[Rfam]
The record is a 681-nucleotide RNA from Rhizoctonia solani, which matches "Nuclear RNase P" in Rfam.

RNA sequence: ACAGCUCGAAAGCCGUAUUUGCUCGUUACGCACUCGCCGAUUCUCUCGGCUUCUCGCGAGCGGGCUAAGGUCUGAGCGUUCUAGUCCCCUUGUAAUUGUGUCUAGCUGGCACCGGCCGUAACAGGCCGAGUAGAGUAUCAGACAUGCGCUCUCUGUUGCCCGUAUCGCCCAGAGAUCCGCAAGGUGAGGGUAUGGCGGCAGUUUGAGCUUGGAACAACUCUACGGGGACGGGGACUACUUGUUUGGUGCUUCGUCGCCUUGUUUGCCUUUGGACUUUGGCACCUAUCGCACCCAUGCGCUUGUGUAUAGCGCUGUGUCAUAUGAUGCACGGUGUGCGGCGUGACAGUCAUUGCUAGCUCUUCGGCUGGCUUGGGGACCGGGACCGGGAUGCCGACGGCCCCAAGUGGGGCCCGGCCUUGCACGCCGUAGAAUUCGGCAUGCAUGUCCUUUGCAGGUUACGCCCUCAGGGAGUUCCAUCCGACCAGGUUAUUCAACCGGUCAUAUUGUGCGUAUCAAUCAUACCACAAUAUAAUGCCAUGUGCAUUGGGUCAUUGGUCUGGGUGGACGAGGGUGUUCGAGGUUCGAGGGAGGUCAUGUGUGGCGUUGCAUCAGAGGUAGACCCUUUAGUUCACUUUGCGGCUCGCAUCAUGCGAAACUCGAUUCAGACUACUCUUGAGCUGU
Dot-bracket structure: ((((....((...[......(((((..........(((((.....)))))......)))))..........(((((.......((((..........(((((.....)))))(((((......))))).(((((((...........(((.......................................................)))........)))))))..)))).........................................................................................................................................................................................................................................................................................................................................................................................................................].(((((...))))).......))))).......))...))))

Background: Rfam links the family to the GO terms ribonuclease P activity, ribonuclease P complex and tRNA processing. A search with the family's covariance model found it, with a score of 57 bits. The organism belongs to Rhizoctonia solani AG-3, within Eukaryota.